Rfam assigns this 117-nucleotide sequence from Salmo salar to the family "Small nucleolar RNA U6-53/MBII-28".
Gene Ontology terms of the family: RNA processing and nucleolus.
The source organism's lineage runs through Eukaryota, Bilateria, Vertebrata, Protacanthopterygii and Salmo.
A reference for the family is Huttenhofer et al. (2001), "RNomics: an experimental approach that identifies 201 candidates for novel, small, non-messenger RNAs in mouse", EMBO J.
[Rfam]
Nucleotides: 117
Stems, first nucleotide, its partner, number of pairs: 001116004042056001044054003
Number, partner (000 for none) and nucleotide at each position: 001116c002115u003114c004113c005000g006000a007000u008000g009000a010000u011000g012000a013000u014000c015000c016000c017000g018000c019000c020000a021000u022000g023000c024000u025000a026000a027000u028000a029000c030000u031000g032000a033000u034000g035000c036000a037000u038000c039000a040000g041000a042056u043000a044054g045053a046052c047000a048000c049000a050000c051000g052046g053045u054044c055000a056042a057000u058000c059000u060000g061000g062000g063000u064000g065000c066000a067000a068000a069000u070000g071000a072000g073000u074000u075000a076000a077000a078000c079000u080000c081000a082000c083000c084000u085000u086000c087000u088000c089000a090000u091000a092000c093000u094000g095000a096000c097000u098000g099000u100000c101000a102000g103000u104000g105000u106000g107000g108000g109000c110000u111000g112000a113004g114003g115002a116001g117000a